[Rfam]
RNA: mir-133 microRNA precursor family
Organism: Salmo salar
RNA sequence: GCUGGUCAAACGGAACCAAGUCAGGUGUUUUAGUGAGGUUUGGUCCCCUUCAACCAGCU
Numbered sequence: 001g002c003u004g005g006u007c008a009a010a011c012g013g014a015a016c017c018a019a020g021u022c023a024g025g026u027g028u029u030u031u032a033g034u035g036a037g038g039u040u041u042g043g044u045c046c047c048c049u050u051c052a053a054c055c056a057g058c059u
Base pairs, nucleotide, nucleotide: 001058002057003056004055005054006053009050010049012046013045014044016043017042018041019040020039021038022037